[Rfam]
RNA sequence: UAAAUAAGGGCACACGGGGGAUGCCUAGGCUCUCAGAGGCGAUGAAGGACGUGAUAAGCUGCGAUAAGCCACGGGGAUCGGCAAAUGCGAACUGAUCCGUGGAUUUCCGAAUGGGGCAACCUAACAUACUGAAGGUAUGUUGUAUGAUACGCGAACGCGCUGAACUGAAACAUCUAAGUAGGCGUAGGAGAAGAAAAUAACAAUGAUUUCCCAAGUAGUGGCGAGCGAACGGGAAAGAGCCCAAACCGGAGUUGUUACGGCAAUUCCGGGGUUGUAGGACUGUGCCGUGGUUACAUUAACGUGAACUGGAAGCAGCUGGGACGCUGCGCGAUAAGGGUGACAGCCCCGUACAGGUAAGCAAUAAUGGCCUAACAGUAUCCUGAGUACCGCGGGACCGGAGAAAUCCUGUGGGAAUCCGCCAGCACCAUCUGGCAAGGCUAAAUACUCCUGAGAGACCGAUAGUGGACCAGUACCGUGAGGGAAAGGUGAAAAGAACCCCGAACAGGGGAGUGAAAAGAACCUGAAACCGUGUGCUUACAAG
Numbered sequence: 001u002a003a004a005u006a007a008g009g010g011c012a013c014a015c016g017g018g019g020g021a022u023g024c025c026u027a028g029g030c031u032c033u034c035a036g037a038g039g040c041g042a043u044g045a046a047g048g049a050c051g052u053g054a055u056a057a058g059c060u061g062c063g064a065u066a067a068g069c070c071a072c073g074g075g076g077a078u079c080g081g082c083a084a085a086u087g088c089g090a091a092c093u094g095a096u097c098c099g100u101g102g103a104u105u106u107c108c109g110a111a112u113g114g115g116g117c118a119a120c121c122u123a124a125c126a127u128a129c130u131g132a133a134g135g136u137a138u139g140u141u142g143u144a145u146g147a148u149a150c151g152c153g154a155a156c157g158c159g160c161u162g163a164a165c166u167g168a169a170a171c172a173u174c175u176a177a178g179u180a181g182g183c184g185u186a187g188g189a190g191a192a193g194a195a196a197a198u199a200a201c202a203a204u205g206a207u208u209u210c211c212c213a214a215g216u217a218g219u220g221g222c223g224a225g226c227g228a229a230c231g232g233g234a235a236a237g238a239g240c241c242c243a244a245a246c247c248g249g250a251g252u253u254g255u256u257a258c259g260g261c262a263a264u265u266c267c268g269g270g271g272u273u274g275u276a277g278g279a280c281u282g283u284g285c286c287g288u289g290g291u292u293a294c295a296u297u298a299a300c301g302u303g304a305a306c307u308g309g310a311a312g313c314a315g316c317u318g319g320g321a322c323g324c325u326g327c328g329c330g331a332u333a334a335g336g337g338u339g340a341c342a343g344c345c346c347c348g349u350a351c352a353g354g355u356a357a358g359c360a361a362u363a364a365u366g367g368c369c370u371a372a373c374a375g376u377a378u379c380c381u382g383a384g385u386a387c388c389g390c391g392g393g394a395c396c397g398g399a400g401a402a403a404u405c406c407u408g409u410g411g412g413a414a415u416c417c418g419c420c421a422g423c424a425c426c427a428u429c430u431g432g433c434a435a436g437g438c439u440a441a442a443u444a445c446u447c448c449u450g451a452g453a454g455a456c457c458g459a460u461a462g463u464g465g466a467c468c469a470g471u472a473c474c475g476u477g478a479g480g481g482a483a484a485g486g487u488g489a490a491a492a493g494a495a496c497c498c499c500g501a502a503c504a505g506g507g508g509a510g511u512g513a514a515a516a517g518a519a520c521c522u523g524a525a526a527c528c529g530u531g532u533g534c535u536u537a538c539a540a541g
Stems, first nucleotide, its partner, number of pairs: 008536010023521001024486002028457002030454007037446002039152002047108003050063003069102007078090003113122003123141007143149002156187001157185005167174002197204002207442001208235005218226002238439004246269007276381003280375004294366005301359002306353003312327005335347003387411008418433005473480002496508004

The family of this 541-nucleotide part of an RNA from Sphingobacterium allocomposti is "Bacterial large subunit ribosomal RNA". Lineage of the source: Bacteria > Pseudomonadati > Sphingobacteriia > Sphingobacteriales > Sphingobacterium. The match comes from Rfam's covariance-model search (2709 bits). The family's consensus secondary structure is taken from published work.